[Rfam]
RNA sequence: AUCUGUGUUAGUGAGCACUUCUCCUUUGCCGAGAUAAUCCCUAAUCAGCAUCUUGAUAUGCCACACCUGUGAGGUGGAUGGAUUAUCUCGGCAAAGGAGAAGUGCUCACUAACACAGAU
Number, nucleotide and partner (000 for none) at each position: 001a000002u000003c000004u000005g115006u114007g113008u112009u111010a000011g109012u108013g107014a106015g105016c104017a103018c102019u101020u000021c099022u098023c097024c096025u000026u000027u093028g092029c091030c090031g089032a088033g087034a086035u085036a084037a083038u082039c000040c000041c000042u000043a000044a000045u000046c000047a000048g000049c000050a000051u000052c000053u000054u000055g000056a000057u000058a000059u000060g000061c000062c000063a000064c000065a000066c000067c000068u000069g000070u000071g000072a000073g000074g000075u000076g000077g000078a000079u000080g000081g000082a038083u037084u036085a035086u034087c033088u032089c031090g030091g029092c028093a027094a000095a000096g024097g023098a022099g021100a000101a019102g018103u017104g016105c015106u014107c013108a012109c011110u000111a009112a008113c007114a006115c005116a000117g000118a000119u000
Annotation:
The record is a 119-nucleotide sequence from Sinocyclocheilus anshuiensis, which matches "mir-399 microRNA precursor family" in Rfam. Rfam links the family to the GO terms miRNA-mediated post-transcriptional gene silencing and RISC complex. The match comes from Rfam's covariance-model search (58 bits). The organism belongs to Sinocyclocheilus, within Eukaryota. Rfam describes the family as follows. mir-399 was identified in both Arabidopsis thaliana and Oryza sativa computationally and was later experimentally verified. mir-399 is thought to target mRNAs coding for a phosphatase transporter. The mature sequence is excised from the 3' arm of the hairpin.